[Rfam]
RNA sequence: GGGGUGUGGGAUAGACUCACCUCCUCGCGGUGUACCCUGGGCAACGUAUAAUCAUACGGCAAAAAAGUCUAU
Numbered sequence: 001g002g003g004g005u006g007u008g009g010g011a012u013a014g015a016c017u018c019a020c021c022u023c024c025u026c027g028c029g030g031u032g033u034a035c036c037c038u039g040g041g042c043a044a045c046g047u048a049u050a051a052u053c054a055u056a057c058g059g060c061a062a063a064a065a066a067g068u069c070u071a072u
Base pairs, nucleotide, nucleotide: 001038002037003036004035005034006033007032019031020030021029045058046057047056048055049054
The record is a 72-nucleotide RNA sequence from Rodentolepis nana, which matches "HDV ribozyme from F. prausnitzii" in Rfam. Its family is annotated with catalytic activity in the Gene Ontology. Rfam 15.1 lists 3,803 matches to the family in 91 species. NCBI's taxonomy places the organism under Eukaryota, Opisthokonta, Platyhelminthes, Cestoda, Rodentolepis.